[Rfam]
RNA sequence: UUGCCCGUCAAGGACUGAAAGUGAAUGGGAUGGAAAACGUGGUAUAAUAUAUAAUAAUAAAAUAAAAAAAAAAGAAAAAUUUAAUUAUCUUUAUUUUAUAAUAUUAUAUUUGUUACUUUUCGUUCAUAAUCGGUUUUAAGUCGUAACAUAGUAACCGUAGGGGAACCUGUGGUUGAAUAAUUAAAUUA
Numbered sequence: 001u002u003g004c005c006c007g008u009c010a011a012g013g014a015c016u017g018a019a020a021g022u023g024a025a026u027g028g029g030a031u032g033g034a035a036a037a038c039g040u041g042g043u044a045u046a047a048u049a050u051a052u053a054a055u056a057a058u059a060a061a062a063u064a065a066a067a068a069a070a071a072a073a074g075a076a077a078a079a080u081u082u083a084a085u086u087a088u089c090u091u092u093a094u095u096u097u098a099u100a101a102u103a104u105u106a107u108a109u110u111u112g113u114u115a116c117u118u119u120u121c122g123u124u125c126a127u128a129a130u131c132g133g134u135u136u137u138a139a140g141u142c143g144u145a146a147c148a149u150a151g152u153a154a155c156c157g158u159a160g161g162g163g164a165a166c167c168u169g170u171g172g173u174u175g176a177a178u179a180a181u182u183a184a185a186u187u188a
Stems, first nucleotide, its partner, number of pairs: 001150001003147001006143002011137008021127010032116001036114004041109001043108008152175010

Bacterial small subunit ribosomal RNA: a 188-nucleotide part of an RNA.